The record is a 56-nucleotide sequence from Bacillus coahuilensis, which matches "Ribosomal protein L13 leader" in Rfam.
Its family is annotated with regulation of gene expression in the Gene Ontology.
A reference for the family is Zengel and Lindahl (1994), "Diverse mechanisms for regulating ribosomal protein synthesis in Escherichia coli", Prog Nucleic Acid Res Mol Biol.
This family is a putative r-protein leader autoregulatory structure found in B. subtilis and other low-GC Gram-positive bacteria. It is located in the 5' untranslated regions of mRNAs encoding the L13-S9 (rplM-rpsI) ribosomal protein operon.
The match comes from Rfam's covariance-model search (48 bits).
Taxonomically the source falls in Bacillus coahuilensis (Bacteria, Bacillati, Caryophanales, Bacillaceae).
[Rfam]
RNA sequence: GGUAUGAAUUUUAACCCCACGAUAAGCCCCGGAACUUAUUGUGAUGAUAAUAAAAA
Numbered sequence: 001g002g003u004a005u006g007a008a009u010u011u012u013a014a015c016c017c018c019a020c021g022a023u024a025a026g027c028c029c030c031g032g033a034a035c036u037u038a039u040u041g042u043g044a045u046g047a048u049a050a051u052a053a054a055a056a
Stems, first nucleotide, its partner, number of pairs: 009056004014051001018043009